[Rfam]
RNA: mir-181 microRNA precursor family
RNA sequence: UUGCUUCAGUGAACAUUCAACGCUGUCGGUGAGUUUGGAAUUAAAGUGAAAACCAUCGACCGUUGAUUGUACCCUCCAGCUUA
Numbered sequence: 001u002u003g004c005u006u007c008a009g010u011g012a013a014c015a016u017u018c019a020a021c022g023c024u025g026u027c028g029g030u031g032a033g034u035u036u037g038g039a040a041u042u043a044a045a046g047u048g049a050a051a052a053c054c055a056u057c058g059a060c061c062g063u064u065g066a067u068u069g070u071a072c073c074c075u076c077c078a079g080c081u082u083a
Stems, first nucleotide, its partner, number of pairs: 001083001003081001004079002008075001014069002017066006025060007033053004